[Rfam]
RNA sequence: CCCACUCAAUGCGCUGCCACCUCAACGUGGUGAGUGGGUGACAACGUCUAUAGACGGCUAAGAGCAGCAUAG
Numbered sequence: 001c002c003c004a005c006u007c008a009a010u011g012c013g014c015u016g017c018c019a020c021c022u023c024a025a026c027g028u029g030g031u032g033a034g035u036g037g038g039u040g041a042c043a044a045c046g047u048c049u050a051u052a053g054a055c056g057g058c059u060a061a062g063a064g065c066a067g068c069a070u071a072g
Stems, first nucleotide, its partner, number of pairs: 001038007019031003045056004
The record is a 72-nucleotide sequence from Paraglomus brasilianum, which matches "HDV ribozyme from F. prausnitzii" in Rfam. Its family is annotated with catalytic activity in the Gene Ontology. The family has 48 seed sequences and 3,803 matches in Rfam 15.1. Taxonomically the source falls in Paraglomus (Eukaryota, Opisthokonta, Fungi, Glomeromycota).